c-di-GMP-I-GGC riboswitch aptamer: an 87-nucleotide sequence from Cohnella candida. Taxonomically the source falls in Cohnella (Bacteria, Bacilli, Caryophanales, Paenibacillaceae).
RNA sequence: GCUGAUAAAGGCAAACUUGCCGAAAGGCAAGGACGCAAAGCUAUGGGUCUAAUGUUCCUCGGGACGAUGACUGCCAAGCCGCCAAAG
Numbered sequence: 001g002c003u004g005a006u007a008a009a010g011g012c013a014a015a016c017u018u019g020c021c022g023a024a025a026g027g028c029a030a031g032g033a034c035g036c037a038a039a040g041c042u043a044u045g046g047g048u049c050u051a052a053u054g055u056u057c058c059u060c061g062g063g064a065c066g067a068u069g070a071c072u073g074c075c076a077a078g079c080c081g082c083c084a085a086a087g
Base pairs, nucleotide, nucleotide: 003084004083011036012035016031017030018029019028020027021026034073040079041078042077044076045075046074047071048070049069